This 133-nucleotide RNA from Levilactobacillus bambusae belongs to the Rfam family "PyrR binding site".
Nucleotides: 133
Stems, first nucleotide, its partner, number of pairs: 003037001005035004013030006045082003049078001051076005057070002095128001098125011
Number, partner (000 for none) and nucleotide at each position: 001000c002000g003037u004000c005035a006034c007033u008032u009000u010000a011000a012000a013030u014029u015028a016027g017026u018025c019000c020000c021000g022000u023000g024000a025018g026017g027016c028015u029014a030013g031000c032008a033007a034006g035005u036000c037003g038000g039000a040000u041000g042000u043000u044000u045082u046081a047080a048000u049078g050000a051076c052075u053074a054073c055072g056000c057070c058069c059000u060000u061000u062000u063000u064000c065000a066000c067000u068000g069058g070057g071000c072055c073054g074053u075052a076051g077000a078049u079000u080047u081046u082045a083000a084000a085000c086000c087000a088000c089000c090000u091000a092000a093000a094000a095128g096000c097000u098125a099124g100123c101122c102121u103120u104119c105118c106117g107116g108115u109000c110000a111000a112000u113000u114000u115108a116107c117106c118105g119104g120103g121102a122101g123100g124099c125098u126000u127000u128095u129000u130000u131000a132000u133000u

A reference for the family is Bonner et al. (2001), "Molecular recognition of pyr mRNA by the Bacillus subtilis attenuation regulatory protein PyrR", Nucleic Acids Res.
The organism belongs to Levilactobacillus, within Bacteria.